[Rfam]
RNA sequence: AUGCCUCUGCCGGGCCCGUCCCGAGAGGAACCGGGAGUCCGAUUCCUCUGCGUGGCUCAGCUCGGCGGAUCUCUGGAACUGAGGCGUCAUG
Numbered sequence: 001a002u003g004c005c006u007c008u009g010c011c012g013g014g015c016c017c018g019u020c021c022c023g024a025g026a027g028g029a030a031c032c033g034g035g036a037g038u039c040c041g042a043u044u045c046c047u048c049u050g051c052g053u054g055g056c057u058c059a060g061c062u063c064g065g066c067g068g069a070u071c072u073c074u075g076g077a078a079c080u081g082a083g084g085c086g087u088c089a090u091g
Stems, first nucleotide, its partner, number of pairs: 001087005010065004015060001018057001020055002026049002028045003032041003068080001

Shown here is a 91-nucleotide RNA from Streptomyces aureocirculatus, a member of the family "dauA ncRNA motif". For this family Rfam cites "The discovery of novel noncoding RNAs in 50 bacterial genomes" (Narunsky et al., Nucleic Acids Res, 2024). Rfam describes the family as follows. dauA ncRNA motif was reported as a strong cis regulatory motif candidate, with potential to be a cis regulatory riboswitch type, it have been identified in genomes of the genus Streptomyces. Lineage of the source: Bacteria > Bacillati > Actinomycetota > Kitasatosporales > Streptomyces.